[Rfam]
Rfam assigns this 66-nucleotide RNA sequence from Aquarana catesbeiana to the family "Small nucleolar RNA SNORD58". It is annotated as a C/D-box small nucleolar RNA. The family has 33 seed sequences and 2,484 matches in Rfam 15.1. Rfam describes the family as follows. snoRNA U58 is found in introns 1, 3 and 6 of the ribosomal protein RPL17 gene in humans. Taxonomically the source falls in Aquarana (Eukaryota, Opisthokonta, Amphibia, Anura). A search with the family's covariance model found it, with a score of 58 bits. The base pairs follow the family's consensus structure, which was predicted with PFOLD.
RNA sequence: UGGCGAUGAUGACUCUUAGGACACCUUUGGAGUCAAAACAUGAAACAAACUUUAUAUCUGAGCUAC
Numbered sequence: 001u002g003g004c005g006a007u008g009a010u011g012a013c014u015c016u017u018a019g020g021a022c023a024c025c026u027u028u029g030g031a032g033u034c035a036a037a038a039c040a041u042g043a044a045a046c047a048a049a050c051u052u053u054a055u056a057u058c059u060g061a062g063c064u065a066c
Stems, first nucleotide, its partner, number of pairs: 001065004